[Rfam]
Nucleotides: 084
Base pairs, nucleotide, nucleotide: 004055005054006053007052008051009050010049011048012047015044016043017072018071019070020069021068027040028039029038030037062077063076064075
Number, partner (000 for none) and nucleotide at each position: 001000g002000a003000u004055a005054g006053a007052c008051a009050c010049a011048g012047u013000a014000a015044c016043u017072g018071a019070c020069g021068a022000c023000a024000a025000a026000a027040g028039u029038g030037g031000a032000g033000a034000c035000a036000a037030c038029c039028a040027c041000a042000a043016g044015g045000g046000a047012g048011c049010u050009g051008u052007g053006u054005u055004u056000u057000a058000u059000a060000g061000a062077g063076u064075c065000g066000g067000g068021u069020c070019g071018u072017c073000u074000g075064g076063g077062c078000a079000g080000a081000g082000a083000u084000a
ZMP/ZTP riboswitch aptamer (pfl RNA motif): an 84-nucleotide RNA sequence from Alkalihalobacillus alcalophilus. It scores 46 bits against the family's covariance model.